[Rfam]
RNA sequence: UGUGGUUUGUACUGUCUGGGAGCAGCCAAGGACAAGUUACCUCUUGUCUUCUAUCCUUGGCCUUCCUAGGUGUCCAAGCUCACAG
Number, nucleotide and partner (000 for none) at each position: 001u084002g083003u082004g081005g079006u078007u077008u076009g075010u000011a073012c072013u000014g000015u070016c069017u068018g067019g066020g065021a064022g063023c000024a000025g061026c060027c059028a058029a057030g056031g055032a054033c046034a045035a044036g043037u000038u000039a000040c000041c000042u000043c036044u035045u034046g033047u000048c000049u000050u000051c000052u000053a000054u032055c031056c030057u029058u028059g027060g026061c025062c000063u022064u021065c020066c019067u018068a017069g016070g015071u000072g012073u011074c000075c009076a008077a007078g006079c005080u000081c004082a003083c002084a001085g000
This 85-nucleotide RNA sequence from Mus musculus belongs to the Rfam family "mir-3075 microRNA precursor family". The base pairs follow the family's consensus structure, which was predicted with RNAalifold. The source organism's lineage runs through Eukaryota, Theria, Glires, Mus and Mus. Gene Ontology terms of the family: RISC complex and miRNA-mediated post-transcriptional gene silencing. The family has 2 seed sequences and 4 matches in Rfam 15.1. The sequence is in the family's curated seed alignment.